This 68-nucleotide sequence belongs to the Rfam family "Fluoride riboswitch aptamer (crcB RNA motif)". It scores 47 bits against the family's covariance model.
Nucleotides: 068
Stems, first nucleotide, its partner, number of pairs: 010026004016059006035048005
Number, partner (000 for none) and nucleotide at each position: 001000u002000a003000a004000c005000a006000u007000u008000a009000a010026g011025g012024u013023g014000a015000u016059g017058a018057g019056g020055u021054u022000c023013c024012a025011c026010c027000u028000u029000u030000a031000a032000c033000c034000g035048u036047c037046a038045g039044u040000g041000a042000u043000u044039a045038c046037u047036g048035a049000a050000u051000g052000a053000u054021g055020a056019c057018u058017u059016c060000u061000a062000u063000u064000u065000u066000u067000c068000a